[Rfam]
RNA: Purine riboswitch aptamer
Organism: Planomicrobium sp. CPCC 101110
RNA sequence: AAAGAAAUUAAAUAACGUUGUCGUAUAAUGUCGGGGAUAUGGCCCGAAAGUUUCUACCGAGUUACCGUAAAUGACUUGACUACGAUUUUUAUCCAUUCUAUU
Numbered sequence: 001a002a003a004g005a006a007a008u009u010a011a012a013u014a015a016c017g018u019u020g021u022c023g024u025a026u027a028a029u030g031u032c033g034g035g036g037a038u039a040u041g042g043c044c045c046g047a048a049a050g051u052u053u054c055u056a057c058c059g060a061g062u063u064a065c066c067g068u069a070a071a072u073g074a075c076u077u078g079a080c081u082a083c084g085a086u087u088u089u090u091a092u093c094c095a096u097u098c099u100a101u102u
Stems, first nucleotide, its partner, number of pairs: 020086006029049001031047005058078007